[Rfam]
RNA sequence: UCCCGGCCCCGGGCCCCUCUGGCGAGCGCGCCGGCCGCUCGCGAUGUCGGUGCCGCCCG
Number, nucleotide and partner (000 for none) at each position: 001u000002c000003c000004c000005g000006g053007c052008c000009c050010c049011g048012g047013g000014c000015c000016c000017c000018u000019c000020u000021g000022g042023c041024g040025a039026g038027c037028g036029c000030g000031c000032c000033g000034g000035c000036c028037g027038c026039u025040c024041g023042c022043g000044a000045u000046g000047u012048c011049g010050g009051u000052g007053c006054c000055g000056c000057c000058c000059g000
RNA: terC RNA
Organism: Hasllibacter halocynthiae